The family of this 114-nucleotide RNA from Brevibacillus sp. SYP-B805 is "TPP riboswitch aptamer (THI element)". NCBI's taxonomy places the organism under Bacteria, Bacillota, Bacilli, Caryophanales, Brevibacillus.
RNA sequence: CAAAACUGCUGGGGGAGCCCGUCAUGCCGGGCUGAGAGGACGGAGCAAGAGAGCCGUCGACCCUUUGAACCUGAUCCAGGUCAUGCUGGCGCAGGGAAGUGGUGAGCAAACGUA
Number, nucleotide and partner (000 for none) at each position: 001c000002a000003a000004a000005a000006c102007u101008g100009c099010u098011g064012g063013g062014g061015g000016a000017g032018c031019c030020c029021g028022u000023c000024a000025u000026g000027c000028c021029g020030g019031g018032c017033u000034g000035a000036g000037a000038g000039g058040a057041c056042g055043g054044a000045g000046c000047a000048a000049g000050a000051g000052a000053g000054c043055c042056g041057u040058c039059g000060a000061c014062c013063c012064u011065u000066u000067g000068a000069a000070c095071c094072u093073g092074a000075u000076c089077c088078a087079g086080g000081u000082c000083a000084u000085g000086c079087u078088g077089g076090c000091g000092c073093a072094g071095g070096g000097a000098a010099g009100u008101g007102g006103u000104g000105a000106g000107c000108a000109a000110a000111c000112g000113u000114a000
Overview
Rfam links the family to the GO term thiamine pyrophosphate binding.